[Rfam]
RNA sequence: UCUGGCGAUGACGACACCUUGCCCUCACCGAGAACGGCGUUCGCUGACGAGAGCAGCUCGAUGCGCUCAAGGGAGCCGAGCCAGA
Numbered sequence: 001u002c003u004g005g006c007g008a009u010g011a012c013g014a015c016a017c018c019u020u021g022c023c024c025u026c027a028c029c030g031a032g033a034a035c036g037g038c039g040u041u042c043g044c045u046g047a048c049g050a051g052a053g054c055a056g057c058u059c060g061a062u063g064c065g066c067u068c069a070a071g072g073g074a075g076c077c078g079a080g081c082c083a084g085a
Stems, first nucleotide, its partner, number of pairs: 001085006
RNA: Small nucleolar RNA SNORD103/SNORD85
Organism: Trogon melanurus